Source information: Shown here is a 223-nucleotide RNA sequence from Streptomyces aurantiacus, a member of the family "Streptomyces sRNA 4677". The pairing is the family consensus, mapped onto this sequence. Rfam classes the family as a small RNA. A search with the family's covariance model found it, with a score of 87 bits. For this family Rfam cites "Complex intra-operonic dynamics mediated by a small RNA in Streptomyces coelicolor" (Hindra et al., PLoS One, 2014). From the family's description: Located in the intergenic region between anti-sigma factor SCO4677 gene and a putative regulatory protein gene SCO4676. scr4677 expression requires the SCO4677 activity and scr4677 sRNA itself seem to affect the levels of the SCO4676-associated transcripts.
RNA sequence: GGGUCCGGUGGGCCGCUGACCUCCUGUAAGAACCGGGGAAAGAACUACCCACCCGCCCUCCCUCCCUGGCCGGAAGGGCCGCGUCACCCGUCCGGGUGACCAGCUUGCAGGAGCGGGAUGGGGGCGGUUACGUUCGCCGCGACAACCGAAAACAGAUACGGCCCCCGGCCGGGAUUGGCGUCCCGAUCGAGGGCCUGACCACCUAGGAAGUAGCACCUUCCCG
Numbered sequence: 001g002g003g004u005c006c007g008g009u010g011g012g013c014c015g016c017u018g019a020c021c022u023c024c025u026g027u028a029a030g031a032a033c034c035g036g037g038g039a040a041a042g043a044a045c046u047a048c049c050c051a052c053c054c055g056c057c058c059u060c061c062c063u064c065c066c067u068g069g070c071c072g073g074a075a076g077g078g079c080c081g082c083g084u085c086a087c088c089c090g091u092c093c094g095g096g097u098g099a100c101c102a103g104c105u106u107g108c109a110g111g112a113g114c115g116g117g118a119u120g121g122g123g124g125c126g127g128u129u130a131c132g133u134u135c136g137c138c139g140c141g142a143c144a145a146c147c148g149a150a151a152a153c154a155g156a157u158a159c160g161g162c163c164c165c166c167g168g169c170c171g172g173g174a175u176u177g178g179c180g181u182c183c184c185g186a187u188c189g190a191g192g193g194c195c196u197g198a199c200c201a202c203c204u205a206g207g208a209a210g211u212a213g214c215a216c217c218u219u220c221c222c223g
Stems, first nucleotide, its partner, number of pairs: 007203004011071004084099006113138001116135002160195005166189002171184004206221005